[Rfam]
RNA sequence: CAACUUGCUUCCAAGGUUUAAAGCUGGUAGUAGCCAUGGAAUCCCCAACUGUAUACAAGAUGAACCUGGAGAGAUUUGGAUAGCACAGGUCAGCAUAAUACCUAUAGCUGUCACUCUCCUUUCUAUAUUU
Number, nucleotide and partner (000 for none) at each position: 001c000002a000003a000004c000005u000006u000007g000008c000009u000010u000011c039012c038013a000014a000015g000016g035017u000018u033019u032020a031021a000022a000023g000024c000025u000026g000027g000028u000029a000030g000031u020032a019033g018034c000035c016036a000037u000038g012039g011040a000041a000042u000043c000044c000045c000046c000047a000048a000049c000050u000051g000052u000053a000054u000055a000056c000057a000058a000059g000060a000061u000062g000063a000064a000065c000066c000067u000068g000069g123070a122071g121072a120073g119074a000075u000076u000077u000078g000079g000080a000081u000082a000083g111084c110085a000086c000087a103088g102089g101090u000091c000092a000093g000094c000095a000096u000097a000098a000099u000100a000101c089102c088103u087104a000105u000106a000107g000108c000109u000110g084111u083112c000113a000114c000115u000116c000117u000118c000119c073120u072121u071122u070123c069124u000125a000126u000127a000128u000129u000130u000
RNA: Small nucleolar RNA SNORA44